[Rfam]
RNA: S15-Flavobacteria ribosomal protein leader
Organism: Imtechella halotolerans
RNA sequence: UAUCUUUGCGCCCUGAUAGAGCACCUAUCAAUACAUAAAAAUCAUUAAAAAAAUAUUGGCAUG
Dot-bracket structure: .............((((((.....)))))).................................
Numbered sequence: 001u002a003u004c005u006u007u008g009c010g011c012c013c014u015g016a017u018a019g020a021g022c023a024c025c026u027a028u029c030a031a032u033a034c035a036u037a038a039a040a041a042u043c044a045u046u047a048a049a050a051a052a053a054u055a056u057u058g059g060c061a062u063g
Stems, first nucleotide, its partner, number of pairs: 014030006